[Rfam]
RNA sequence: GCAGCAGUGAUGAAUGGCGCAGGGGUACGGACCUCAGCUGAAUAAUGGGGGCUGAGUGUGAGUUAUCUGUGUUCCACCAUUGCUGGCAAGUGGCUGGCUUUCUGGGACCUGGCUCACAUGAGAAUUUCGCCUUAGUCUGAGCUGC
Numbered sequence: 001g002c003a004g005c006a007g008u009g010a011u012g013a014a015u016g017g018c019g020c021a022g023g024g025g026u027a028c029g030g031a032c033c034u035c036a037g038c039u040g041a042a043u044a045a046u047g048g049g050g051g052c053u054g055a056g057u058g059u060g061a062g063u064u065a066u067c068u069g070u071g072u073u074c075c076a077c078c079a080u081u082g083c084u085g086g087c088a089a090g091u092g093g094c095u096g097g098c099u100u101u102c103u104g105g106g107a108c109c110u111g112g113c114u115c116a117c118a119u120g121a122g123a124a125u126u127u128c129g130c131c132u133u134a135g136u137c138u139g140a141g142c143u144g145c
Stems, first nucleotide, its partner, number of pairs: 001145005

Record summary:
Shown here is a 145-nucleotide RNA sequence from Naja naja, a member of the family "Small nucleolar RNA SNORD94". Pairs were carried over by alignment from the consensus structure, which was predicted with RNAalifold. By type it is a C/D-box small nucleolar RNA.